Rfam assigns this 93-nucleotide RNA from Desulforamulus profundi to the family "Selenocysteine transfer RNA". The base pairs follow the family's consensus structure, which is taken from published work. The source organism's lineage runs through Bacteria, Bacillati, Bacillota, Clostridia and Desulforamulus.
[Rfam]
RNA sequence: GGGAGGGUUGGAACUGGGGUUCCCCGCGGGCUGCAAACCCGUUGGCCGGUUGGCAGAACCAGCCGGAGUCGGGUUCAAUUCCCACACCCUCCC
Numbered sequence: 001g002g003g004a005g006g007g008u009u010g011g012a013a014c015u016g017g018g019g020u021u022c023c024c025c026g027c028g029g030g031c032u033g034c035a036a037a038c039c040c041g042u043u044g045g046c047c048g049g050u051u052g053g054c055a056g057a058a059c060c061a062g063c064c065g066g067a068g069u070c071g072g073g074u075u076c077a078a079u080u081c082c083c084a085c086a087c088c089c090u091c092c093c
Stems, first nucleotide, its partner, number of pairs: 001093007010023005025044001026042005046066005069084001071083003